[Rfam]
RNA sequence: GGAGUUGGCCAGGCAAUCGCUCCGCGCAUACCUUCCAUUGCUGGAUAAGGUGCGCCGGGGAGGAAAGUCCGGGCUCCAUAGGGCAGAGUGCCAGGUAACACCUGGGAGGCGUGAGCCUACGGAAAGUGCAACAGAGAGUAGACCGCCCAAGCACGCAAGUGCCGGUAAGGGUGAAAGGGUGCGGUAAGAGCGCACCGCGCAACUGGUAACAGGCUGCGGCUAGGUAAACCCCACUCGGAGCAAGACCAAAUAGGGGUCCAUUGGUGUGGCCCGCACUGGACCCGGGUAGGUUGCUUGAGGCCUGUGGUGACACAGGUCCCAGAUGAAUGAUUGCCCACGACAGAACCCGGCUUAUCGGCCGACUCCUUUA
Numbered sequence: 001g002g003a004g005u006u007g008g009c010c011a012g013g014c015a016a017u018c019g020c021u022c023c024g025c026g027c028a029u030a031c032c033u034u035c036c037a038u039u040g041c042u043g044g045a046u047a048a049g050g051u052g053c054g055c056c057g058g059g060g061a062g063g064a065a066a067g068u069c070c071g072g073g074c075u076c077c078a079u080a081g082g083g084c085a086g087a088g089u090g091c092c093a094g095g096u097a098a099c100a101c102c103u104g105g106g107a108g109g110c111g112u113g114a115g116c117c118u119a120c121g122g123a124a125a126g127u128g129c130a131a132c133a134g135a136g137a138g139u140a141g142a143c144c145g146c147c148c149a150a151g152c153a154c155g156c157a158a159g160u161g162c163c164g165g166u167a168a169g170g171g172u173g174a175a176a177g178g179g180u181g182c183g184g185u186a187a188g189a190g191c192g193c194a195c196c197g198c199g200c201a202a203c204u205g206g207u208a209a210c211a212g213g214c215u216g217c218g219g220c221u222a223g224g225u226a227a228a229c230c231c232c233a234c235u236c237g238g239a240g241c242a243a244g245a246c247c248a249a250a251u252a253g254g255g256g257u258c259c260a261u262u263g264g265u266g267u268g269g270c271c272c273g274c275a276c277u278g279g280a281c282c283c284g285g286g287u288a289g290g291u292u293g294c295u296u297g298a299g300g301c302c303u304g305u306g307g308u309g310a311c312a313c314a315g316g317u318c319c320c321a322g323a324u325g326a327a328u329g330a331u332u333g334c335c336c337a338c339g340a341c342a343g344a345a346c347c348c349g350g351c352u353u354a355u356c357g358g359c360c361g362a363c364u365c366c367u368u369u370a
Stems, first nucleotide, its partner, number of pairs: 001366010011355001012335007020060004024055005065353003069350005074240004081272004086236005091105005106120001107118004121231002126229002128225002143170002145166003151162004178196006197220001198218004203212003244292004254283006263277005299318008
RNA: Bacterial RNase P class A